RNA sequence: UCCCAGUGAGGAAACAGUCUUACCUCCUGUCCUAGUCCCAGAGCCUGUAAAGGUGAACCCACUGGGGCUGGCUGGGGGGAAGGAGGAAACCUGCUCCAGAAGGAACUGUCUGAGGGAU
Numbered sequence: 001u002c003c004c005a006g007u008g009a010g011g012a013a014a015c016a017g018u019c020u021u022a023c024c025u026c027c028u029g030u031c032c033u034a035g036u037c038c039c040a041g042a043g044c045c046u047g048u049a050a051a052g053g054u055g056a057a058c059c060c061a062c063u064g065g066g067g068c069u070g071g072c073u074g075g076g077g078g079g080a081a082g083g084a085g086g087a088a089a090c091c092u093g094c095u096c097c098a099g100a101a102g103g104a105a106c107u108g109u110c111u112g113a114g115g116g117a118u
Base pairs, nucleotide, nucleotide: 001117002116003115004114

Notes:
Shown here is a 118-nucleotide RNA from Nyctereutes procyonoides, a member of the family "Small nucleolar RNA SNORD22". It scores 134 bits against the family's covariance model. Its family is annotated with RNA processing and nucleolus in the Gene Ontology. The family's RNA type in Rfam is C/D-box small nucleolar RNA.